[Rfam]
RNA sequence: CGAUCGGGAGGCCGCUGGUGGGACAGCGGCCGGGAAUUGAUCGGAACACGCCGUCUCAAAUGGCCUGCGAUGCUGGAGCCCGACAGCAUUCGCG
Numbered sequence: 001c002g003a004u005c006g007g008g009a010g011g012c013c014g015c016u017g018g019u020g021g022g023a024c025a026g027c028g029g030c031c032g033g034g035a036a037u038u039g040a041u042c043g044g045a046a047c048a049c050g051c052c053g054u055c056u057c058a059a060a061u062g063g064c065c066u067g068c069g070a071u072g073c074u075g076g077a078g079c080c081c082g083a084c085a086g087c088a089u090u091c092g093c094g
Stems, first nucleotide, its partner, number of pairs: 001043005010031008066094005071088005